[Rfam]
RNA: mir-8510 microRNA precursor family
Organism: Plutella xylostella
RNA sequence: UCGUCGAUACUGUGAUCUCACCCGCAAGUCGGUCGUGCACUCGCAGGUGAGAUGAUAGCAUUGAAGG
Numbered sequence: 001u002c003g004u005c006g007a008u009a010c011u012g013u014g015a016u017c018u019c020a021c022c023c024g025c026a027a028g029u030c031g032g033u034c035g036u037g038c039a040c041u042c043g044c045a046g047g048u049g050a051g052a053u054g055a056u057a058g059c060a061u062u063g064a065a066g067g
Base pairs, nucleotide, nucleotide: 004064005063006062007061008060010058011057012056013055015053016052017051018050019049020048021047022046024044025043027041028040029039030037031036
Dot-bracket structure: ...(((((.((((.((((((((.((.(((((....)).))).)).)))))))).)))).)))))...